[Rfam]
RNA sequence: AGCUCAAUGAUUUCAACCAAUCAAGUUGGUUUUAUACGCUAUUCUGAUUGGAGCUGUUGAAAAAUUAAGACGUACGAGAGCU
Numbered sequence: 001a002g003c004u005c006a007a008u009g010a011u012u013u014c015a016a017c018c019a020a021u022c023a024a025g026u027u028g029g030u031u032u033u034a035u036a037c038g039c040u041a042u043u044c045u046g047a048u049u050g051g052a053g054c055u056g057u058u059g060a061a062a063a064a065u066u067a068a069g070a071c072g073u074a075c076g077a078g079a080g081c082u
Stems, first nucleotide, its partner, number of pairs: 001082005